Shown here is a 74-nucleotide RNA sequence from Cnephaeus nilssonii, a member of the family "mir-9193 microRNA precursor family". The family has 2 seed sequences and 6,008 matches in Rfam 15.1.
RNA sequence: UGUGCACUUAGGGGGUCCCUCAGCCCAGAUUCUGAGAGGGCACAGGCCAGGCUGAGGGACCCCACUGGUGCACG
Numbered sequence: 001u002g003u004g005c006a007c008u009u010a011g012g013g014g015g016u017c018c019c020u021c022a023g024c025c026c027a028g029a030u031u032c033u034g035a036g037a038g039g040g041c042a043c044a045g046g047c048c049a050g051g052c053u054g055a056g057g058g059a060c061c062c063c064a065c066u067g068g069u070g071c072a073c074g
Stems, first nucleotide, its partner, number of pairs: 003072002006069001008067001012063014028047001030045002033042002